RNA sequence: AGAAAAAAACCCUGCAUUCCUGCAGGGCCCUUCUAUAUCCCAUAGGGACAGAAGGCAAAGGGAGAGGAGAAACCGGAGGAAGAACUUAUGGGGAAACGUAAGUCUUCUCCGCGG
Numbered sequence: 001a002g003a004a005a006a007a008a009a010c011c012c013u014g015c016a017u018u019c020c021u022g023c024a025g026g027g028c029c030c031u032u033c034u035a036u037a038u039c040c041c042a043u044a045g046g047g048a049c050a051g052a053a054g055g056c057a058a059a060g061g062g063a064g065a066g067g068a069g070a071a072a073c074c075g076g077a078g079g080a081a082g083a084a085c086u087u088a089u090g091g092g093g094a095a096a097c098g099u100a101a102g103u104c105u106u107c108u109c110c111g112c113g114g
Stems, first nucleotide, its partner, number of pairs: 010027007028062005038048004074111004079107004084103005